[Rfam]
RNA: SL588 non-coding RNA
RNA sequence: CUGGCCCCUCUACGGGAAUGAGGGCUGCGGCUGGGCAGGGUGGCUCUUGUCCCCCCGCGGCUCUCGCCCUAGUUGGGGCCC
Dot-bracket structure: ..((((((.....(((..((.(((((((((..((((((((....))))))))..))))))))).))))).....)))))).
Numbered sequence: 001c002u003g004g005c006c007c008c009u010c011u012a013c014g015g016g017a018a019u020g021a022g023g024g025c026u027g028c029g030g031c032u033g034g035g036c037a038g039g040g041u042g043g044c045u046c047u048u049g050u051c052c053c054c055c056c057g058c059g060g061c062u063c064u065c066g067c068c069c070u071a072g073u074u075g076g077g078g079c080c081c
Stems, first nucleotide, its partner, number of pairs: 003080006014069003019066002022063009033052008